[Rfam]
RNA: SAM/SAH riboswitch aptamer
Organism: Ketogulonicigenium vulgare
RNA sequence: CAUCCCCCACAACGGCUUCCUGACGUGGCGGGUAAGAUUGAAAUGGAGCA
Number, nucleotide and partner (000 for none) at each position: 001c000002a000003u000004c032005c031006c000007c028008c027009a026010c025011a000012a000013c022014g021015g049016c048017u047018u000019c046020c045021u014022g013023a000024c000025g010026u009027g008028g007029c000030g000031g005032g004033u000034a000035a000036g000037a000038u000039u000040g000041a000042a000043a000044u000045g020046g019047a017048g016049c015050a000